[Rfam]
RNA sequence: GGUAGUUCUCAGGUGACCACUCCAGAAUCGGGCUUUCUCCUCUCUGGUUCCAGGGUAUGUCACCUGAGGACCGCU
Numbered sequence: 001g002g003u004a005g006u007u008c009u010c011a012g013g014u015g016a017c018c019a020c021u022c023c024a025g026a027a028u029c030g031g032g033c034u035u036u037c038u039c040c041u042c043u044c045u046g047g048u049u050c051c052a053g054g055g056u057a058u059g060u061c062a063c064c065u066g067a068g069g070a071c072c073g074c075u
Stems, first nucleotide, its partner, number of pairs: 002074002005071013019056004025050008
About this RNA: The record is a 75-nucleotide RNA from Cnephaeus nilssonii, which matches "mir-9223 microRNA precursor family" in Rfam. Rfam links the family to the GO terms RISC complex and miRNA-mediated post-transcriptional gene silencing.